[Rfam]
RNA sequence: AGGCUGCUGUGUGAUGACUGCAUAGUUCAGCAGAUGACUCAUGGUGAUCACAGUUACUACUGUCUUUCGCCUCCUGUCUGAUGCAGCCU
Numbered sequence: 001a002g003g004c005u006g007c008u009g010u011g012u013g014a015u016g017a018c019u020g021c022a023u024a025g026u027u028c029a030g031c032a033g034a035u036g037a038c039u040c041a042u043g044g045u046g047a048u049c050a051c052a053g054u055u056a057c058u059a060c061u062g063u064c065u066u067u068c069g070c071c072u073c074c075u076g077u078c079u080g081a082u083g084c085a086g087c088c089u
Stems, first nucleotide, its partner, number of pairs: 004086004
Shown here is an 89-nucleotide RNA sequence from Myiagra hebetior, a member of the family "Small nucleolar RNA snR60/Z15/Z230/Z193/J17". The family has 23 seed sequences and 3,592 matches in Rfam 15.1. It is annotated as a C/D-box small nucleolar RNA. Rfam links the family to the GO terms nucleolus and RNA processing.